[Rfam]
RNA: mir-147 microRNA precursor family
RNA sequence: UAUGAAUCUUGCAGAAACAUUUCUGCACAAACUAGAUUAUGGAUACCAGUGUGCCAAAAAUAUUUCUGCUGCAUCUUUA
Dot-bracket structure: ((.(.((.(.((((((..((((.((((((..((..............))))))).).))))..)))))).).)).).))
Numbered sequence: 001u002a003u004g005a006a007u008c009u010u011g012c013a014g015a016a017a018c019a020u021u022u023c024u025g026c027a028c029a030a031a032c033u034a035g036a037u038u039a040u041g042g043a044u045a046c047c048a049g050u051g052u053g054c055c056a057a058a059a060a061u062a063u064u065u066c067u068g069c070u071g072c073a074u075c076u077u078u079a
Stems, first nucleotide, its partner, number of pairs: 001079002004076001006074002009071001011069006019061004024056001025054005032049002